[Rfam]
RNA sequence: GAUUGCACUCUUUCUUCUCUGUAAUCGCGGCUG
Numbered sequence: 001g002a003u004u005g006c007a008c009u010c011u012u013u014c015u016u017c018u019c020u021g022u023a024a025u026c027g028c029g030g031c032u033g
Stems, first nucleotide, its partner, number of pairs: 001026007
Shown here is a 33-nucleotide sequence, a member of the family "S4-Bacteroidia ribosomal protein leader". Rfam's curators put it in the seed alignment. By type it is a cis-regulatory leader. Clan: Ribosomal Protein S4 Leader clan.